RNA sequence: GAUCCGAUAGUAUGGUCGAAAGAUUCAUUUAAAAAUCUUUCGACCAUACUAUCUAUUCUUAUUAUUGUAAUGUAUAAAGAUACAAACGGAA
Numbered sequence: 001g002a003u004c005c006g007a008u009a010g011u012a013u014g015g016u017c018g019a020a021a022g023a024u025u026c027a028u029u030u031a032a033a034a035a036u037c038u039u040u041c042g043a044c045c046a047u048a049c050u051a052u053c054u055a056u057u058c059u060u061a062u063u064a065u066u067g068u069a070a071u072g073u074a075u076a077a078a079g080a081u082a083c084a085a086a087c088g089g090a091a
Base pairs, nucleotide, nucleotide: 006053007052008051009050010049011048012047013046014045015044016043017042018041019040020039021038022037023036024035025034
RNA: Plastid-psbM 3UTR RNA
Organism: Dodonaea viscosa